[Rfam]
This 167-nucleotide part of an RNA from Fusarium venenatum belongs to the Rfam family "Ascomycota telomerase RNA". NCBI's taxonomy places the organism under Eukaryota, sordariomyceta, Sordariomycetes, Hypocreomycetidae, Fusarium sambucinum species complex. Gene Ontology terms of the family: telomerase activity, telomerase catalytic core complex and telomere maintenance via telomerase.

RNA sequence: CACGCCAGCAAGGGCCAAUAGGUCUUAGCAGGUCCCUCGGACCGGCCGCAAGGUUGGACUUGAGAUGAAAGGGUGGUUUUUAUGGAUGUAUUUUGUCCACCCGUCAAUGCCCUCCAUACCUCUCGUUGGCGAGAAAGUUGGAGAGGAAUCAAAAACUUGUCCUAGGG
Numbered sequence: 001c002a003c004g005c006c007a008g009c010a011a012g013g014g015c016c017a018a019u020a021g022g023u024c025u026u027a028g029c030a031g032g033u034c035c036c037u038c039g040g041a042c043c044g045g046c047c048g049c050a051a052g053g054u055u056g057g058a059c060u061u062g063a064g065a066u067g068a069a070a071g072g073g074u075g076g077u078u079u080u081u082a083u084g085g086a087u088g089u090a091u092u093u094u095g096u097c098c099a100c101c102c103g104u105c106a107a108u109g110c111c112c113u114c115c116a117u118a119c120c121u122c123u124c125g126u127u128g129g130c131g132a133g134a135a136a137g138u139u140g141g142a143g144a145g146g147a148a149u150c151a152a153a154a155a156c157u158u159g160u161c162c163u164a165g166g167g
Stems, first nucleotide, its partner, number of pairs: 008029002010026003014023003035067001036064005042057002047052001085161003088156002091154005110146002112143004121134005